A member of the RNA family "Small nucleolar RNA SNORD69" from Callaeas wilsoni, 75 nucleotides long. By type it is a C/D-box small nucleolar RNA. Taxonomically the source falls in Callaeas (Eukaryota, Bilateria, Vertebrata, Aves). snoRNA HBII-210 belongs to the C/D family of snoRNAs. It is the human orthologue of the mouse MBII-210 and is predicted to guide the 2'O-ribose methylation of large 28S rRNA on residue G4464. The pairing is the family consensus, mapped onto this sequence. The match comes from Rfam's covariance-model search (49 bits).
[Rfam]
RNA sequence: UACACAAAGCACAUGAUGACAAAACACUGAGACUGACUGUAUGAAGUACAUCAAUCCAACACUGAGCUUUGUGUC
Numbered sequence: 001u002a003c004a005c006a007a008a009g010c011a012c013a014u015g016a017u018g019a020c021a022a023a024a025c026a027c028u029g030a031g032a033c034u035g036a037c038u039g040u041a042u043g044a045a046g047u048a049c050a051u052c053a054a055u056c057c058a059a060c061a062c063u064g065a066g067c068u069u070u071g072u073g074u075c
Stems, first nucleotide, its partner, number of pairs: 002074009